Small nucleolar RNA SNORD2: a 67-nucleotide RNA from Tupaia belangeri. The sequence is in the family's curated seed alignment. The family's RNA type in Rfam is C/D-box small nucleolar RNA. The base pairs follow the family's consensus structure, which was predicted with WAR. Taxonomically the source falls in Tupaia (Eukaryota, Euteleostomi, Tetrapoda, Eutheria). A reference for the family is Zhou et al. (2004), "Identification of a novel box C/D snoRNA from mouse nucleolar cDNA library", Gene. The family has 17 seed sequences and 1,116 matches in Rfam 15.1.
RNA sequence: AAGUGAAAUGAUGGCAAUCAUCUUUCGGGACUGACCUGAAAUGAAGAAUACAUUUUGCUGAUCACUU
Numbered sequence: 001a002a003g004u005g006a007a008a009u010g011a012u013g014g015c016a017a018u019c020a021u022c023u024u025u026c027g028g029g030a031c032u033g034a035c036c037u038g039a040a041a042u043g044a045a046g047a048a049u050a051c052a053u054u055u056u057g058c059u060g061a062u063c064a065c066u067u
Stems, first nucleotide, its partner, number of pairs: 001067006